[Rfam]
RNA sequence: AAAAAGUGGAGACCAGCAACCAUUUUAAAAACGGGGCGAAAACUGAAAAGCCAAACGAGUAAGAAUAAAA
Dot-bracket structure: .....((((..........))))...........(((.....[......)))..........].......